The record is a 70-nucleotide RNA from Sphingomonas sp., which matches "Fluoride riboswitch aptamer (crcB RNA motif)" in Rfam.
The match comes from Rfam's covariance-model search (38 bits).

[Rfam]
RNA sequence: AGGCGAUGGAUUUCCGCCUGGCUAUGUUGGCCGAACCGCCCUCGCAAGGGCCGAUGAUUCCUACCGGGCG
Numbered sequence: 001a002g003g004c005g006a007u008g009g010a011u012u013u014c015c016g017c018c019u020g021g022c023u024a025u026g027u028u029g030g031c032c033g034a035a036c037c038g039c040c041c042u043c044g045c046a047a048g049g050g051c052c053g054a055u056g057a058u059u060c061c062u063a064c065c066g067g068g069c070g
Base pairs, nucleotide, nucleotide: 002018003017004016005015008061009060010059012057013056038051039050040049041048